RNA sequence: AUUUGUCGGCCAUCUACUCCUCCCAGAUGCGAUGCCGGUGUUGAAUAUGGUGCACCUCCUCCCGCACCGUUUUCGAAAUCAAGCCCGCUGCCACCUCCUCCCGGCAGCGGGCUUUUUC
Numbered sequence: 001a002u003u004u005g006u007c008g009g010c011c012a013u014c015u016a017c018u019c020c021u022c023c024c025a026g027a028u029g030c031g032a033u034g035c036c037g038g039u040g041u042u043g044a045a046u047a048u049g050g051u052g053c054a055c056c057u058c059c060u061c062c063c064g065c066a067c068c069g070u071u072u073u074c075g076a077a078a079u080c081a082a083g084c085c086c087g088c089u090g091c092c093a094c095c096u097c098c099u100c101c102c103g104g105c106a107g108c109g110g111g112c113u114u115u116u117u118c
Base pairs, nucleotide, nucleotide: 007037008036009035011029012028013027043074044073045072047070048069049068050067051066052065081114082113083112084111085110086109087108088107089106090105091104
This 118-nucleotide sequence from Mesorhizobium zhangyense belongs to the Rfam family "Alphaproteobacterial ar14". A search with the family's covariance model found it, with a score of 74 bits. The pairing is the family consensus, mapped onto this sequence. Its family is annotated with biological process involved in symbiotic interaction in the Gene Ontology. Rfam 15.1 lists 784 matches to the family in 332 species. On this family, see del Val et al., RNA Biol 2012: "A survey of sRNA families in alpha-proteobacteria".